The family of this 86-nucleotide RNA sequence from Vibrio proteolyticus is "c-di-GMP-I riboswitch aptamer". The organism belongs to Vibrio proteolyticus, within Bacteria.
RNA sequence: UUGUGUCAACGGCAAACCUGUUGAAAAACAGGGACGCAAAGCUUCCGGCCUAAGGAAUAUAUUUCUAAGGUAGCGGGGUUACCACA
Numbered sequence: 001u002u003g004u005g006u007c008a009a010c011g012g013c014a015a016a017c018c019u020g021u022u023g024a025a026a027a028a029c030a031g032g033g034a035c036g037c038a039a040a041g042c043u044u045c046c047g048g049c050c051u052a053a054g055g056a057a058u059a060u061a062u063u064u065c066u067a068a069g070g071u072a073g074c075g076g077g078g079u080u081a082c083c084a085c086a
Stems, first nucleotide, its partner, number of pairs: 012037002017032006040080004045076003048071003055065003